A member of the RNA family "Small nucleolar RNA snoR2/U65" from Musa balbisiana, 152 nucleotides long. Rfam links the family to the GO terms nucleolus and RNA processing. Lineage of the source: Eukaryota > Mesangiospermae > Liliopsida > Zingiberales > Musa. It is annotated as an H/ACA-box small nucleolar RNA. On this family, see Shaw et al., J Cell Sci 1998: "Localization and processing from a polycistronic precursor of novel snoRNAs in maize". The base pairs follow the family's consensus structure, which was predicted with WAR.
RNA sequence: GGCCCGAUGCCACGUCACCAGUAGCUUAUGCAUUGACUGGUGAUGCUAUGAUCUGGCCAAUAUCAAGUCCUGGUUGGACAUUUCGCCUGCUGAUAGGAACCUGUGGAUAAGAUCCAUGUUCAUCCACGGAGCCGAUUUCUGCGAUCACAAUU
Numbered sequence: 001g002g003c004c005c006g007a008u009g010c011c012a013c014g015u016c017a018c019c020a021g022u023a024g025c026u027u028a029u030g031c032a033u034u035g036a037c038u039g040g041u042g043a044u045g046c047u048a049u050g051a052u053c054u055g056g057c058c059a060a061u062a063u064c065a066a067g068u069c070c071u072g073g074u075u076g077g078a079c080a081u082u083u084c085g086c087c088u089g090c091u092g093a094u095a096g097g098a099a100c101c102u103g104u105g106g107a108u109a110a111g112a113u114c115c116a117u118g119u120u121c122a123u124c125c126a127c128g129g130a131g132c133c134g135a136u137u138u139c140u141g142c143g144a145u146c147a148c149a150a151u152u
Base pairs, nucleotide, nucleotide: 002057003056004055006053007052008051009049013045014044015043016042017041018040020038021037022036024031025030083144084143085142086141096133097132101129102128103127105125106124107123108122